RNA sequence: GACUCGCCCGCGUGAGCGAUGGCAGCGGCAUCCUUUUGCGGCCGUAGUGCAGCGAAGGCUGCAAAAGAUAUAGCGGACAGCGCGACGGCAG
Numbered sequence: 001g002a003c004u005c006g007c008c009c010g011c012g013u014g015a016g017c018g019a020u021g022g023c024a025g026c027g028g029c030a031u032c033c034u035u036u037u038g039c040g041g042c043c044g045u046a047g048u049g050c051a052g053c054g055a056a057g058g059c060u061g062c063a064a065a066a067g068a069u070a071u072a073g074c075g076g077a078c079a080g081c082g083c084g085a086c087g088g089c090a091g
Base pairs, nucleotide, nucleotide: 016083017082018081020079021078025074026073030069031068032067036064037063038062039061040060041059042058043057